[Rfam]
RNA sequence: ACGUUCGGGUAAUCGCUGCAAGGAUCGUAAGUGAAUUGUAGAGGAAAGUCCAUGCUCGCACGGUCUGAGAUGUCCGUAGUGUUCGUGCCUAGCCAAUUCAUAAGCUAGGGCAGCUAGGUUUUUACUUGGCUGACGGCAGGGAAAAUGCCUAAGUCGAUUUCGAUAUGGCAUGAAUACCUUGAAAGUGCCACAGUGACGGAGCCCAUUUAGAAAUGAAUGGGGUGGAACGAGGUAAACCCCACGAGCGAGAAACCCAAAUUAUGGUAGGGGCACCUUCUCUUAGGAAAUGAACGAGGAGAAGGACAGGUUCAGUUGAAUCUGUAGAUAGAUGAUUGCCACCUGAGUACGAGACGUUCAGUCGAUUGUAGUACAAAGGAACAAAACAUGGCUUAUAGAA
Numbered sequence: 001a002c003g004u005u006c007g008g009g010u011a012a013u014c015g016c017u018g019c020a021a022g023g024a025u026c027g028u029a030a031g032u033g034a035a036u037u038g039u040a041g042a043g044g045a046a047a048g049u050c051c052a053u054g055c056u057c058g059c060a061c062g063g064u065c066u067g068a069g070a071u072g073u074c075c076g077u078a079g080u081g082u083u084c085g086u087g088c089c090u091a092g093c094c095a096a097u098u099c100a101u102a103a104g105c106u107a108g109g110g111c112a113g114c115u116a117g118g119u120u121u122u123u124a125c126u127u128g129g130c131u132g133a134c135g136g137c138a139g140g141g142a143a144a145a146u147g148c149c150u151a152a153g154u155c156g157a158u159u160u161c162g163a164u165a166u167g168g169c170a171u172g173a174a175u176a177c178c179u180u181g182a183a184a185g186u187g188c189c190a191c192a193g194u195g196a197c198g199g200a201g202c203c204c205a206u207u208u209a210g211a212a213a214u215g216a217a218u219g220g221g222g223u224g225g226a227a228c229g230a231g232g233u234a235a236a237c238c239c240c241a242c243g244a245g246c247g248a249g250a251a252a253c254c255c256a257a258a259u260u261a262u263g264g265u266a267g268g269g270g271c272a273c274c275u276u277c278u279c280u281u282a283g284g285a286a287a288u289g290a291a292c293g294a295g296g297a298g299a300a301g302g303a304c305a306g307g308u309u310c311a312g313u314u315g316a317a318u319c320u321g322u323a324g325a326u327a328g329a330u331g332a333u334u335g336c337c338a339c340c341u342g343a344g345u346a347c348g349a350g351a352c353g354u355u356c357a358g359u360c361g362a363u364u365g366u367a368g369u370a371c372a373a374a375g376g377a378a379c380a381a382a383a384c385a386u387g388g389c390u391u392a393u394a395g396a397a
Base pairs, nucleotide, nucleotide: 004397005396006395007393008337009336010335011334012333013332014331016041017040018039019038020037021036046391047390048389050388051387052386053385054384055249056248057247058246059245060077061076062075063074065072083244084243085242086241087240088109089108090107091106092105093104110134111132112131113130114129115128116127117126118125119124135239136238138179139178140177146170147169148168149167153164154163155162185237186236187233188232189231202221203220204219205218206217207216208215209214253269254268255267273302274301275300276299277298278297279296303322304321305320306319307318308317309316310315339376340375341374344371345370346369347368
RNA: Bacterial RNase P class B